Shown here is an 82-nucleotide RNA from Aphis craccivora, a member of the family "mir-184 microRNA precursor family". The family's consensus secondary structure was predicted with PFOLD. Gene Ontology terms of the family: RISC complex and gene silencing by miRNA.
[Rfam]
RNA sequence: CCUAUUACAUUCCUUUAUCAUUCUCUGGUCUUGUGUGAAUUUUAUACUACUGGACGGAGAACUGAUAAAGGUGAGUGAUGUG
Numbered sequence: 001c002c003u004a005u006u007a008c009a010u011u012c013c014u015u016u017a018u019c020a021u022u023c024u025c026u027g028g029u030c031u032u033g034u035g036u037g038a039a040u041u042u043u044a045u046a047c048u049a050c051u052g053g054a055c056g057g058a059g060a061a062c063u064g065a066u067a068a069a070g071g072u073g074a075g076u077g078a079u080g081u082g
Stems, first nucleotide, its partner, number of pairs: 012071009021061006029053002

It scores 68 bits against the family's covariance model.